The record is a 114-nucleotide sequence from Kineococcus aurantiacus, which matches "SAM (S-adenosyl methionine) riboswitch aptamer" in Rfam. It scores 80 bits against the family's covariance model.
RNA sequence: GGUCACGAGUGCUGCCGCGAAGCCCCGGCUCGGCAGCCGGCAACCCCCUCGCACGGCGUGGGGUGCCCCGGGUGAGGACCCGGUCCUGCGGAACCCGCAGGGCAAGGCAGUGCU
Numbered sequence: 001g002g003u004c005a006c007g008a009g010u011g012c013u014g015c016c017g018c019g020a021a022g023c024c025c026c027g028g029c030u031c032g033g034c035a036g037c038c039g040g041c042a043a044c045c046c047c048c049u050c051g052c053a054c055g056g057c058g059u060g061g062g063g064u065g066c067c068c069c070g071g072g073u074g075a076g077g078a079c080c081c082g083g084u085c086c087u088g089c090g091g092a093a094c095c096c097g098c099a100g101g102g103c104a105a106g107g108c109a110g111u112g113c114u
Stems, first nucleotide, its partner, number of pairs: 001080004009038001011037006021030002039067003044063003048056001083103009

The family's consensus secondary structure is taken from published work. Its Rfam clan is "SAM clan". About the family: SAM-IV is a mRNA element that regulates gene expression via direct sensing of S-adenosylmethionine (SAM or AdoMet). SAM-IV riboswitches share conserved nucleotide positions with the previously described SAM-I riboswitches sequence analysis and molecular recognition experiments suggest that SAM-I and SAM-IV riboswitches share similar ligand binding sites, but have different scaffolds.